This 178-nucleotide RNA sequence from Rhipicephalus microplus belongs to the Rfam family "U2 spliceosomal RNA". NCBI's taxonomy places the organism under Eukaryota, Metazoa, Parasitiformes, Ixodoidea, Boophilus. The family's RNA type in Rfam is spliceosomal small nuclear RNA. Rfam 15.1 lists 71,512 matches to the family in 2,642 species. Pairs were carried over by alignment from the consensus structure, which is taken from published work.

RNA sequence: UAUGUUUGCCUCUUUUGAUAAGCAUUUUCUGUUCUUAAUACUUAAUAUGUGAUGCGAAUUCUAUUUGUAUCCAAUAUAAUAAACUUAUUUUGCUAUGCGGAGCAGUGCUUGAAGCUUGCUUCAACUCCGCAACGGGUUGGCCCGGUGUUGCACUAUCUCCGGGAUUUGCCACUCUUUC
Numbered sequence: 001u002a003u004g005u006u007u008g009c010c011u012c013u014u015u016u017g018a019u020a021a022g023c024a025u026u027u028u029c030u031g032u033u034c035u036u037a038a039u040a041c042u043u044a045a046u047a048u049g050u051g052a053u054g055c056g057a058a059u060u061c062u063a064u065u066u067g068u069a070u071c072c073a074a075u076a077u078a079a080u081a082a083a084c085u086u087a088u089u090u091u092g093c094u095a096u097g098c099g100g101a102g103c104a105g106u107g108c109u110u111g112a113a114g115c116u117u118g119c120u121u122c123a124a125c126u127c128c129g130c131a132a133c134g135g136g137u138u139g140g141c142c143c144g145g146u147g148u149u150g151c152a153c154u155a156u157c158u159c160c161g162g163g164a165u166u167u168g169c170c171a172c173u174c175u176u177u178c
Stems, first nucleotide, its partner, number of pairs: 007024003011018002036054002039051003056072001058070002061067001096131007111122004135170003139166001141163005